[Rfam]
RNA sequence: UAAUAUCGACAUCUCCGAGCCAAUUCAACCUAAGGGAGAAAAUAAUCUAUGGUGAUUGGCCUGAGUUUUACGCUCACGGGGUAUCCUUGGAAACGAGUAUGCCUUACUGUCACAUAUUUUACAAGGAGGUGGUGUAUGCAACCU
Numbered sequence: 001u002a003a004u005a006u007c008g009a010c011a012u013c014u015c016c017g018a019g020c021c022a023a024u025u026c027a028a029c030c031u032a033a034g035g036g037a038g039a040a041a042a043u044a045a046u047c048u049a050u051g052g053u054g055a056u057u058g059g060c061c062u063g064a065g066u067u068u069u070a071c072g073c074u075c076a077c078g079g080g081g082u083a084u085c086c087u088u089g090g091a092a093a094c095g096a097g098u099a100u101g102c103c104u105u106a107c108u109g110u111c112a113c114a115u116a117u118u119u120u121a122c123a124a125g126g127a128g129g130u131g132g133u134g135u136a137u138g139c140a141a142c143c144u
Stems, first nucleotide, its partner, number of pairs: 011130006019060007028053003034048003062076005079104006086097004105121002

The record is a 144-nucleotide RNA from Aceticella autotrophica, which matches "Molybdenum/Tungsten riboswitch aptamer (Moco RNA motif)" in Rfam.
A search with the family's covariance model found it, with a score of 61 bits.
The organism belongs to Aceticella, within Bacteria.
For this family Rfam cites "Identification of 22 candidate structured RNAs in bacteria using the CMfinder comparative genomics pipeline" (Weinberg et al., Nucleic Acids Res, 2007).
Pairs were carried over by alignment from the consensus structure, which is taken from published work.